[Rfam]
A member of the RNA family "mir-9223 microRNA precursor family" from Myotis davidii, 75 nucleotides long.
The match comes from Rfam's covariance-model search (66 bits).
The base pairs follow the family's consensus structure, which was predicted with RNAalifold.
Lineage of the source: Eukaryota > Gnathostomata > Yangochiroptera > Vespertilionidae > Myotis.

RNA sequence: GGCGAUUCUCGGGUGAUGCUCCCCAGAAUCAGGCUUCCUCCUCGCUGGAUCCGGGUGCAUCACCCAAGAACCGCU
Number, nucleotide and partner (000 for none) at each position: 001g000002g074003c073004g000005a000006u070007u069008c068009u067010c000011g065012g064013g063014u062015g061016a060017u059018g000019c057020u000021c055022c054023c053024c000025a000026g051027a050028a000029u048030c047031a046032g045033g000034c000035u000036u000037c000038c000039u000040c000041c000042u000043c000044g000045c032046u031047g030048g029049a000050u027051c026052c000053g023054g022055g021056u000057g019058c000059a017060u016061c015062a014063c013064c012065c011066a000067a009068g008069a007070a006071c000072c000073g003074c002075u000